[Rfam]
RNA sequence: GUUUACACGGAGUUUUGUUGGUUUGCUCUCAGCUUGUGCUACUCUGUGCUGUGCAAAUCCAUGCAAAGCUCUGUGUUCCU
Numbered sequence: 001g002u003u004u005a006c007a008c009g010g011a012g013u014u015u016u017g018u019u020g021g022u023u024u025g026c027u028c029u030c031a032g033c034u035u036g037u038g039c040u041a042c043u044c045u046g047u048g049c050u051g052u053g054c055a056a057a058u059c060c061a062u063g064c065a066a067a068g069c070u071c072u073g074u075g076u077u078c079c080u
Stems, first nucleotide, its partner, number of pairs: 005076014020060002022057005028051001031050003
Notes:
mir-19 microRNA precursor family: an 80-nucleotide RNA from Sphaeramia orbicularis. The source organism's lineage runs through Eukaryota, Eumetazoa, Neoteleostei, Kurtiformes and Sphaeramia. It scores 57 bits against the family's covariance model. Its Rfam clan is "mir-19 clan". Gene Ontology terms of the family: RISC complex and miRNA-mediated post-transcriptional gene silencing.